[Rfam]
RNA sequence: CUACUCCCUCUGUAAAUUAAUAUAAGAGAAUUUAGAUCACUAAAAUAGUGAUCUAAACGUUCUUAUAUUAGUUUACAGAGGGAGUAC
Numbered sequence: 001c002u003a004c005u006c007c008c009u010c011u012g013u014a015a016a017u018u019a020a021u022a023u024a025a026g027a028g029a030a031u032u033u034a035g036a037u038c039a040c041u042a043a044a045a046u047a048g049u050g051a052u053c054u055a056a057a058c059g060u061u062c063u064u065a066u067a068u069u070a071g072u073u074u075a076c077a078g079a080g081g082g083a084g085u086a087c
Stems, first nucleotide, its partner, number of pairs: 003085003007081005013075005019069010031057011